[Rfam]
RNA sequence: UCGGGUGCACCGCUGAAUUGCCGCAGUCAUGGGGAAGAUGUCUGGGGCGAACCGGGGAACCACGUGUGUGGGGUGAAUCGGACUGCGUUCGCGCGGACCGUAGGGCGACCUUGGCCCGAACCCGUCAGCUCACCCGGUAGGCGCUCGAGGAUGUAGGA
Numbered sequence: 001u002c003g004g005g006u007g008c009a010c011c012g013c014u015g016a017a018u019u020g021c022c023g024c025a026g027u028c029a030u031g032g033g034g035a036a037g038a039u040g041u042c043u044g045g046g047g048c049g050a051a052c053c054g055g056g057g058a059a060c061c062a063c064g065u066g067u068g069u070g071g072g073g074u075g076a077a078u079c080g081g082a083c084u085g086c087g088u089u090c091g092c093g094c095g096g097a098c099c100g101u102a103g104g105g106c107g108a109c110c111u112u113g114g115c116c117c118g119a120a121c122c123c124g125u126c127a128g129c130u131c132a133c134c135c136g137g138u139a140g141g142c143g144c145u146c147g148a149g150g151a152u153g154u155a156g157g158a
Base pairs, nucleotide, nucleotide: 011143012142013141014140018050019049020048021047022046051138052137053136054135055134056133061070062069071123072122073121079100080099081098103117104116105115106114

c-di-AMP riboswitch aptamer (ydaO/yuaA leader): a 158-nucleotide RNA sequence from Aeromicrobium sp. A1-2. The match comes from Rfam's covariance-model search (76 bits).